[Rfam]
RNA: transfer-messenger RNA
RNA sequence: GGGGCUGAUUGGUUUCGACUGGGGACGCUUGUCCCAGGAGAAGCGGGUCGAGAAGCCAGCGUCAUCUCGUAAACGUCCGCUGGAAAACACAACUGCCAACGCUAAGCGCAGUCACUUCGCUCUCGCUGCCUGAGCAGUGAUCGAAGGGUCAGACCGGGCAUCUGCCUCCGUCCCGGAUCCUGGCCUCAUCUAGGGGGCUUGCUGAUCAACUCCUGUCAGGAGGGUUGAUCGGGACUUUUUCCUGACUGAGCCCGUCGGCGCACGUGUCCGUGCCAGCGCCGGGGCCGAGAAAAGCGACCUCACGGACUGCACCCGGAGAAGACCUGGUUCGGCGCUCGAGGACGCGGGUUCGAUUCCCGCCAGCUCCACCG
Numbered sequence: 001g002g003g004g005c006u007g008a009u010u011g012g013u014u015u016c017g018a019c020u021g022g023g024g025a026c027g028c029u030u031g032u033c034c035c036a037g038g039a040g041a042a043g044c045g046g047g048u049c050g051a052g053a054a055g056c057c058a059g060c061g062u063c064a065u066c067u068c069g070u071a072a073a074c075g076u077c078c079g080c081u082g083g084a085a086a087a088c089a090c091a092a093c094u095g096c097c098a099a100c101g102c103u104a105a106g107c108g109c110a111g112u113c114a115c116u117u118c119g120c121u122c123u124c125g126c127u128g129c130c131u132g133a134g135c136a137g138u139g140a141u142c143g144a145a146g147g148g149u150c151a152g153a154c155c156g157g158g159c160a161u162c163u164g165c166c167u168c169c170g171u172c173c174c175g176g177a178u179c180c181u182g183g184c185c186u187c188a189u190c191u192a193g194g195g196g197g198c199u200u201g202c203u204g205a206u207c208a209a210c211u212c213c214u215g216u217c218a219g220g221a222g223g224g225u226u227g228a229u230c231g232g233g234a235c236u237u238u239u240u241c242c243u244g245a246c247u248g249a250g251c252c253c254g255u256c257g258g259c260g261c262a263c264g265u266g267u268c269c270g271u272g273c274c275a276g277c278g279c280c281g282g283g284g285c286c287g288a289g290a291a292a293a294g295c296g297a298c299c300u301c302a303c304g305g306a307c308u309g310c311a312c313c314c315g316g317a318g319a320a321g322a323c324c325u326g327g328u329u330c331g332g333c334g335c336u337c338g339a340g341g342a343c344g345c346g347g348g349u350u351c352g353a354u355u356c357c358c359g360c361c362a363g364c365u366c367c368a369c370c371g
Stems, first nucleotide, its partner, number of pairs: 001367007019340002022337003028331001031330001034327005044315005049069005056083006123140007147185006154176004160171002164198006202232009215246005250285004256281003260277002266307004272301001344360005